[Rfam]
RNA sequence: AUACACUUAUGAGUAAGGAAAAUAAUGAUUCGGGGUGACGCUGAAAUCCUCACUGCUAAUGUGAGAUGAAUUUUUGAGUGGGUAAAGAUUGCUCCUAAGGUAACCCGCCUACUUUGCGGGAUGCCUGGGAGUCACAAUCUGUCCA
Numbered sequence: 001a002u003a004c005a006c007u008u009a010u011g012a013g014u015a016a017g018g019a020a021a022a023u024a025a026u027g028a029u030u031c032g033g034g035g036u037g038a039c040g041c042u043g044a045a046a047u048c049c050u051c052a053c054u055g056c057u058a059a060u061g062u063g064a065g066a067u068g069a070a071u072u073u074u075u076g077a078g079u080g081g082g083u084a085a086a087g088a089u090u091g092c093u094c095c096u097a098a099g100g101u102a103a104c105c106c107g108c109c110u111a112c113u114u115u116g117c118g119g120g121a122u123g124c125c126u127g128g129g130a131g132u133c134a135c136a137a138u139c140u141g142u143c144c145a
Stems, first nucleotide, its partner, number of pairs: 002015002027048004033042002049065005079145005086140006095129002098126005104120005